The record is a 110-nucleotide sequence from Caldanaerobacter subterraneus, which matches "SAM riboswitch aptamer (S box leader)" in Rfam.
RNA sequence: CUCUUAUCAAGAGUGGUGGAGGGACUGGCCCGAUGAAACCCGGCAACCGGCACGUAAGUGCUUGGUGCCAAUUCCUGCAGGUUGGGGUUACCCAGCCUGAGAGAUGAGAG
Numbered sequence: 001c002u003c004u005u006a007u008c009a010a011g012a013g014u015g016g017u018g019g020a021g022g023g024a025c026u027g028g029c030c031c032g033a034u035g036a037a038a039c040c041c042g043g044c045a046a047c048c049g050g051c052a053c054g055u056a057a058g059u060g061c062u063u064g065g066u067g068c069c070a071a072u073u074c075c076u077g078c079a080g081g082u083u084g085g086g087g088u089u090a091c092c093c094a095g096c097c098u099g100a101g102a103g104a105u106g107a108g109a110g
Stems, first nucleotide, its partner, number of pairs: 001110008013041001015040003021031003025077001027075002042069004047065002049062004073102001078099008
Rfam links the family to the GO term regulation of gene expression. Taxonomically the source falls in Caldanaerobacter subterraneus subsp. tengcongensis (Bacteria, Clostridia, Caldanaerobacter, Caldanaerobacter subterraneus).